[Rfam]
Purine riboswitch aptamer: a 102-nucleotide sequence from Anaerosalibacter massiliensis. It scores 87 bits against the family's covariance model. The organism belongs to Anaerosalibacter, within Bacteria.
RNA sequence: AUAAAAACAGAAUAUUGCUCUCAUAUAAUCCUGAUAAUAUGGUUCAGGAGUUUCUACAGGAUAACCUAAAAUUAUCCUACUAUGGGUGAGGAUAAACAGAUA
Numbered sequence: 001a002u003a004a005a006a007a008c009a010g011a012a013u014a015u016u017g018c019u020c021u022c023a024u025a026u027a028a029u030c031c032u033g034a035u036a037a038u039a040u041g042g043u044u045c046a047g048g049a050g051u052u053u054c055u056a057c058a059g060g061a062u063a064a065c066c067u068a069a070a071a072u073u074a075u076c077c078u079a080c081u082a083u084g085g086g087u088g089a090g091g092a093u094a095a096a097c098a099g100a101u102a
Stems, first nucleotide, its partner, number of pairs: 018088001020086006029049006058078007